The record is a 106-nucleotide RNA sequence from Novosphingobium sediminicola, which matches "TPP riboswitch aptamer (THI element)" in Rfam. The source organism's lineage runs through Bacteria, Pseudomonadati, Pseudomonadota, Alphaproteobacteria and Novosphingobium.

RNA sequence: UGCAUAUCCCCGGGGAGCCAUGUGGCUGAGAGGUGGGCGUCACGCCCCACGACCCGCUGAACCUGAACCCGUUAAUCCGGGCGUAGGGAGGGAAGCGUCUGUCGGC
Numbered sequence: 001u002g003c004a005u006a007u008c009c010c011c012g013g014g015g016a017g018c019c020a021u022g023u024g025g026c027u028g029a030g031a032g033g034u035g036g037g038c039g040u041c042a043c044g045c046c047c048c049a050c051g052a053c054c055c056g057c058u059g060a061a062c063c064u065g066a067a068c069c070c071g072u073u074a075a076u077c078c079g080g081g082c083g084u085a086g087g088g089a090g091g092g093a094a095g096c097g098u099c100u101g102u103c104g105g106c
Base pairs, nucleotide, nucleotide: 007093008092009091010090011056012055013054014053017026018025019024033050034049035048036047037046062087063086064085065084068081069080070079071078